[Rfam]
RNA sequence: AAGGCGUAUCCCCAAAAGCCUGUAAUAGAGUAGGGA
Numbered sequence: 001a002a003g004g005c006g007u008a009u010c011c012c013c014a015a016a017a018g019c020c021u022g023u024a025a026u027a028g029a030g031u032a033g034g035g036a
Stems, first nucleotide, its partner, number of pairs: 002021004010035003

The family of this 36-nucleotide RNA is "DUF805b RNA". By type it is a cis-regulatory element.